RNA sequence: AGCCUUCAUUAUUUGUGCAGAGAUUUCGUCACACACCAGACCACGAAGGUUGAUGAAACUCCCAGGAUAAAUGAAGCG
Numbered sequence: 001a002g003c004c005u006u007c008a009u010u011a012u013u014u015g016u017g018c019a020g021a022g023a024u025u026u027c028g029u030c031a032c033a034c035a036c037c038a039g040a041c042c043a044c045g046a047a048g049g050u051u052g053a054u055g056a057a058a059c060u061c062c063c064a065g066g067a068u069a070a071a072u073g074a075a076g077c078g
Stems, first nucleotide, its partner, number of pairs: 002077002005074002009070005016064002020061003024058007
This 78-nucleotide sequence from Schistosoma mattheei belongs to the Rfam family "mir-3492 microRNA precursor family".